Notes: The record is a 118-nucleotide RNA from Terrihalobacillus insolitus, which matches "Ribosomal protein L20 leader" in Rfam. Pairs were carried over by alignment from the consensus structure, which was predicted with CMfinder. Rfam classes the family as a cis-regulatory leader. Rfam describes the family as follows. This family is a putative r-protein leader autoregulatory structure found in B. subtilis and other low-GC Gram-positive bacteria. It is located in the 5' untranslated regions of mRNAs encoding initiation factor 3 followed by ribosomal proteins L35 and L20 (infC-rpmI-rplT). A Rho-independent transcription terminator structure that is probably involved in regulation is included at the 3' end.
[Rfam]
RNA sequence: UGAGACAAGUAGAAGCACCCGCUUCUCACCUGAUUGACGCCAAUGGCAGUUGACAGGUAAUUAUUCUGAUAUACAGAAGACGUGUGGGUGUAGUAUGUGCCGACACUUUUUUUAUGUG
Numbered sequence: 001u002g003a004g005a006c007a008a009g010u011a012g013a014a015g016c017a018c019c020c021g022c023u024u025c026u027c028a029c030c031u032g033a034u035u036g037a038c039g040c041c042a043a044u045g046g047c048a049g050u051u052g053a054c055a056g057g058u059a060a061u062u063a064u065u066c067u068g069a070u071a072u073a074c075a076g077a078a079g080a081c082g083u084g085u086g087g088g089u090g091u092a093g094u095a096u097g098u099g100c101c102g103a104c105a106c107u108u109u110u111u112u113u114a115u116g117u118g
Stems, first nucleotide, its partner, number of pairs: 011026006028058003036051003039047002083105003087101006